[Rfam]
RNA: GlmZ RNA activator of glmS mRNA
Organism: Pantoea sp. M_5
RNA sequence: GCAGCUGCUCAUUCACCUGUUUAUGAUUGCCCCGCCUGGCGGAAAAGAGCUCAUAAAGCCCGAAUGACGCACCAAACGGAGCCUGCCGUCCAACUGACCGAUAAUCGCUUGCGUUAUCAAACACCGGACGUAACGUUGAGUAAGGCUCCACCCAUUCUUACACGAGGCAUUGCGCGUCGUGUCCACGGCAGGCCACAGAGCCUGCCGUUUUCUU
Numbered sequence: 001g002c003a004g005c006u007g008c009u010c011a012u013u014c015a016c017c018u019g020u021u022u023a024u025g026a027u028u029g030c031c032c033c034g035c036c037u038g039g040c041g042g043a044a045a046a047g048a049g050c051u052c053a054u055a056a057a058g059c060c061c062g063a064a065u066g067a068c069g070c071a072c073c074a075a076a077c078g079g080a081g082c083c084u085g086c087c088g089u090c091c092a093a094c095u096g097a098c099c100g101a102u103a104a105u106c107g108c109u110u111g112c113g114u115u116a117u118c119a120a121a122c123a124c125c126g127g128a129c130g131u132a133a134c135g136u137u138g139a140g141u142a143a144g145g146c147u148c149c150a151c152c153c154a155u156u157c158u159u160a161c162a163c164g165a166g167g168c169a170u171u172g173c174g175c176g177u178c179g180u181g182u183c184c185a186c187g188g189c190a191g192g193c194c195a196c197a198g199a200g201c202c203u204g205c206c207g208u209u210u211u212c213u214u
Stems, first nucleotide, its partner, number of pairs: 001073001006071003009067004016062001018055002027049001078149007088129004100118004159169001161167001185208009